RNA sequence: AAAAAGGGCUUCUGCCGUGCGUGGUACGGGGGGGCUGUGCGCUACCCUCGCGGAAUCGACAUCAAGAGAUUUCGGAAGCACAAUUUUUGAGGGAGGGGCCGCCGGUAACCGCUUGUUCUGGCACCCCA
Numbered sequence: 001a002a003a004a005a006g007g008g009c010u011u012c013u014g015c016c017g018u019g020c021g022u023g024g025u026a027c028g029g030g031g032g033g034g035c036u037g038u039g040c041g042c043u044a045c046c047c048u049c050g051c052g053g054a055a056u057c058g059a060c061a062u063c064a065a066g067a068g069a070u071u072u073c074g075g076a077a078g079c080a081c082a083a084u085u086u087u088u089g090a091g092g093g094a095g096g097g098g099c100c101g102c103c104g105g106u107a108a109c110c111g112c113u114u115g116u117u118c119u120g121g122c123a124c125c126c127c128a
Base pairs, nucleotide, nucleotide: 008079009078010077011076012075013026014025015024016023017022027050028049029048030047031046032045034043036041051074052073053072054071055070056069057068096126097125098124101122102121103120104119105118107117108116109115
RNA: U11 spliceosomal RNA
Organism: Dasyornis broadbenti